Rfam assigns this 103-nucleotide sequence from Taibaiella lutea to the family "SAM riboswitch aptamer (S box leader)". The match comes from Rfam's covariance-model search (86 bits). A reference for the family is Grundy and Henkin (1998), "The S box regulon: a new global transcription termination control system for methionine and cysteine biosynthesis genes in gram-positive bacteria", Mol Microbiol. About the family: The SAM riboswitch is found upstream of a number of genes which code for proteins involved in methionine or cysteine biosynthesis in Gram-positive bacteria.

[Rfam]
RNA sequence: UACUUAUCCAGAAAGGUGGAGGGACAUGGCCCGACGAUACCUUAGCAACCUAUACUCGAUAUAAGGUGCUAAUUCCAACUCAAGAAAUUGAGAUAGAUAAGUC
Numbered sequence: 001u002a003c004u005u006a007u008c009c010a011g012a013a014a015g016g017u018g019g020a021g022g023g024a025c026a027u028g029g030c031c032c033g034a035c036g037a038u039a040c041c042u043u044a045g046c047a048a049c050c051u052a053u054a055c056u057c058g059a060u061a062u063a064a065g066g067u068g069c070u071a072a073u074u075c076c077a078a079c080u081c082a083a084g085a086a087a088u089u090g091a092g093a094u095a096g097a098u099a100a101g102u103c
Stems, first nucleotide, its partner, number of pairs: 002102007013043005021032003027077003044070004049066002051063004074095001079092005